Shown here is a 90-nucleotide RNA sequence from Ornithorhynchus anatinus, a member of the family "mir-15 microRNA precursor family".
From the family's description: This family represents the related mir-15a and mir-15b sequences. In humans miR-15a and miR-16 are clustered within 0.5 kb at 13q14. This region has been shown to be deleted in more than half of B cell chronic lymphocytic leukaemias (CLL). Both miR-15a and miR-16 are deleted or down-regulated in more than two thirds of CLL cases.
For this family Rfam cites "Identification of novel genes coding for small expressed RNAs" (Lagos-Quintana et al., Science, 2001).
The family is grouped with related families in Rfam's "mir-15 clan".
Rfam links the family to the GO terms RISC complex and miRNA-mediated post-transcriptional gene silencing.
The organism belongs to Ornithorhynchus, within Eukaryota.
RNA sequence: GUCGGCCGUGCCCUAGCAGCACGUAAAUACUGGAGUUUGGGGAUGCCUCGUUGCUCUCCAGUAUUGCAUUGCUGCUUGAGCGAGGCCGGA
Numbered sequence: 001g002u003c004g005g006c007c008g009u010g011c012c013c014u015a016g017c018a019g020c021a022c023g024u025a026a027a028u029a030c031u032g033g034a035g036u037u038u039g040g041g042g043a044u045g046c047c048u049c050g051u052u053g054c055u056c057u058c059c060a061g062u063a064u065u066g067c068a069u070u071g072c073u074g075c076u077u078g079a080g081c082g083a084g085g086c087c088g089g090a
Base pairs, nucleotide, nucleotide: 002089003088004087005086006085013078015076016075017074018073019072020071021070023069026065027064028063029062030061031060032059033058034057035056